[Rfam]
RNA sequence: AGAGUGGCGUGAGAAGCGUCUGCUAGUGAGCCGGGCCCCCCGCGGGCCCGGCUUGCCAUACUGUCAAAUUGCGGGGAGUCCCUGAAGCUCGCAGCUACCGCAGCCCGCCGAAAGGUCUGGGUGCGCACCGGGGUAAUGACCUUAGGGAUGGUAAUAACGCUGGAGAUUGGGUGACCUGCAGCCAAGUCCUACGGGCCGCGCGCGCGCGCGCGGCCUACGGAUGCAGUUUAACGACUAGACGGCGGUGGGCCCUCCUGCCCCUGGGAGGGGGCUUAAGAUAUAGUCUAACGCGCGCGCCGAAAGGCCGCG
Numbered sequence: 001a002g003a004g005u006g007g008c009g010u011g012a013g014a015a016g017c018g019u020c021u022g023c024u025a026g027u028g029a030g031c032c033g034g035g036c037c038c039c040c041c042g043c044g045g046g047c048c049c050g051g052c053u054u055g056c057c058a059u060a061c062u063g064u065c066a067a068a069u070u071g072c073g074g075g076g077a078g079u080c081c082c083u084g085a086a087g088c089u090c091g092c093a094g095c096u097a098c099c100g101c102a103g104c105c106c107g108c109c110g111a112a113a114g115g116u117c118u119g120g121g122u123g124c125g126c127a128c129c130g131g132g133g134u135a136a137u138g139a140c141c142u143u144a145g146g147g148a149u150g151g152u153a154a155u156a157a158c159g160c161u162g163g164a165g166a167u168u169g170g171g172u173g174a175c176c177u178g179c180a181g182c183c184a185a186g187u188c189c190u191a192c193g194g195g196c197c198g199c200g201c202g203c204g205c206g207c208g209c210g211c212g213g214c215c216u217a218c219g220g221a222u223g224c225a226g227u228u229u230a231a232c233g234a235c236u237a238g239a240c241g242g243c244g245g246u247g248g249g250c251c252c253u254c255c256u257g258c259c260c261c262u263g264g265g266a267g268g269g270g271g272c273u274u275a276a277g278a279u280a281u282a283g284u285c286u287a288a289c290g291c292g293c294g295c296g297c298c299g300a301a302a303g304g305c306c307g308c309g
Stems, first nucleotide, its partner, number of pairs: 008018003059247005065241001070180006080171003084167001181227002186222004194215009231286001233285005249272006296305003
RNA: Group I catalytic intron
Organism: Diplocarpon coronariae